[Rfam]
RNA: TPP riboswitch aptamer (THI element)
RNA sequence: AUAUUGUGCUAGGGGUGCUACGGCUGAGAAAUGAUUUUUCAUUACCCUUUACCUGACCUAGAUAAUGCUAGCGUAGGGAAGCGAUUAAUAAGCUUA
Number, nucleotide and partner (000 for none) at each position: 001a000002u000003a000004u000005u000006g000007u083008g082009c081010u080011a048012g047013g046014g045015g000016u000017g024018c023019u000020a000021c000022g000023g018024c017025u000026g000027a000028g000029a000030a000031a042032u041033g040034a039035u000036u000037u000038u000039u034040c033041a032042u031043u000044a000045c014046c013047c012048u011049u000050u000051a000052c077053c076054u075055g074056a000057c000058c071059u070060a069061g068062a000063u000064a000065a000066u000067g000068c061069u060070a059071g058072c000073g000074u055075a054076g053077g052078g000079a000080a010081g009082c008083g007084a000085u000086u000087a000088a000089u000090a000091a000092g000093c000094u000095u000096a000